The family of this 88-nucleotide RNA from Streptomyces sp. GS7 is "ZMP/ZTP riboswitch aptamer (pfl RNA motif)".
RNA sequence: GUCCCGAGCCGUGACUGGCGCUUGGGUGGAGUACCACCGGGGAGCGGCUCGGCCUCCGUGGUCCCUGCCGUGCGCCUGGGCGAUUCCC
Numbered sequence: 001g002u003c004c005c006g007a008g009c010c011g012u013g014a015c016u017g018g019c020g021c022u023u024g025g026g027u028g029g030a031g032u033a034c035c036a037c038c039g040g041g042g043a044g045c046g047g048c049u050c051g052g053c054c055u056c057c058g059u060g061g062u063c064c065c066u067g068c069c070g071u072g073c074g075c076c077u078g079g080g081c082g083a084u085u086c087c088c
Stems, first nucleotide, its partner, number of pairs: 004052009015041002017076005026037004066082004